[Rfam]
RNA sequence: UGCGAGUUUCUUCGGGGCGGAGCUCGACCGCCAACACAGGAAGUAGUGGCGUUCAUCGACGCCAACCGAGAGCUCGGGGUCGAGCCCAUUUGCACCGCGCUGCAGGUGGCCCCG
Numbered sequence: 001u002g003c004g005a006g007u008u009u010c011u012u013c014g015g016g017g018c019g020g021a022g023c024u025c026g027a028c029c030g031c032c033a034a035c036a037c038a039g040g041a042a043g044u045a046g047u048g049g050c051g052u053u054c055a056u057c058g059a060c061g062c063c064a065a066c067c068g069a070g071a072g073c074u075c076g077g078g079g080u081c082g083a084g085c086c087c088a089u090u091u092g093c094a095c096c097g098c099g100c101u102g103c104a105g106g107u108g109g110c111c112c113c114g
Base pairs, nucleotide, nucleotide: 016032017031018030019029020028075114076113077112078111079110086109087108089106090105091104092103093102094101
The family of this 114-nucleotide RNA sequence from Pengzhenrongella sicca is "ALIL pseudoknot". Rfam classes the family as a cis-regulatory element. The organism belongs to Pengzhenrongella, within Bacteria. The family's consensus secondary structure is taken from published work. Gene Ontology term of the family: positive regulation of translational frameshifting. The match comes from Rfam's covariance-model search (80 bits). For this family Rfam cites "Apical loop-internal loop RNA pseudoknots: a new type of stimulator of -1 translational frameshifting in bacteria" (Mazauric et al., J Biol Chem, 2008).